[Rfam]
RNA sequence: CUCCAUGGUGUCCUCAUUGUACAUGCUGUGUGUAUUUUCUGCCGCAUACACAGCGCAUGCAAUGUGGACACGGUGGAG
Numbered sequence: 001c002u003c004c005a006u007g008g009u010g011u012c013c014u015c016a017u018u019g020u021a022c023a024u025g026c027u028g029u030g031u032g033u034a035u036u037u038u039c040u041g042c043c044g045c046a047u048a049c050a051c052a053g054c055g056c057a058u059g060c061a062a063u064g065u066g067g068a069c070a071c072g073g074u075g076g077a078g
Stems, first nucleotide, its partner, number of pairs: 012067002015064007024055001026053006